[Rfam]
RNA sequence: UAAUUUAAUUAGCAAACCGCCGGAAACGGCGGGACGCAAAGCUAUGGGGACUUAGACGCUUGAAGCGUGAUGUCAGCCCGGCUGCUAAU
Numbered sequence: 001u002a003a004u005u006u007a008a009u010u011a012g013c014a015a016a017c018c019g020c021c022g023g024a025a026a027c028g029g030c031g032g033g034a035c036g037c038a039a040a041g042c043u044a045u046g047g048g049g050a051c052u053u054a055g056a057c058g059c060u061u062g063a064a065g066c067g068u069g070a071u072g073u074c075a076g077c078c079c080g081g082c083u084g085c086u087a088a089u
Base pairs, nucleotide, nucleotide: 012037013036017032018031019030020029021028022027040083041082042081043080046079047078048077049074050073051072056068057067058066059065
Description
A member of the RNA family "c-di-GMP-I riboswitch aptamer" from Lachnospiraceae bacterium M18-1, 89 nucleotides long. About the family: GEMM was predicted in a large-scale screen for bacterial structured RNA regulatory elements. Rfam links the family to the GO term cyclic-di-GMP binding. The family's consensus secondary structure is taken from published work.